[Rfam]
RNA sequence: UGCCGUCCAUGCAUCGUGGCCUCUGCCCGAACCGACCCUGACGUACUUCCCCGACGCCAGGUUCGUGACCUCGGACAGAGACCCCGAUGCACGGGCACCACAUC
Numbered sequence: 001u002g003c004c005g006u007c008c009a010u011g012c013a014u015c016g017u018g019g020c021c022u023c024u025g026c027c028c029g030a031a032c033c034g035a036c037c038c039u040g041a042c043g044u045a046c047u048u049c050c051c052c053g054a055c056g057c058c059a060g061g062u063u064c065g066u067g068a069c070c071u072c073g074g075a076c077a078g079a080g081a082c083c084c085c086g087a088u089g090c091a092c093g094g095g096c097a098c099c100a101c102a103u104c
Stems, first nucleotide, its partner, number of pairs: 010091007018083002021080005027074004032067001033065003037061004042056003
The record is a 104-nucleotide sequence from Mycolicibacterium sediminis, which matches "mraW RNA" in Rfam. The family's consensus secondary structure is taken from published work. A search with the family's covariance model found it, with a score of 74 bits. The organism belongs to Mycobacterium (subgen. Mycolicibacterium), within Bacteria.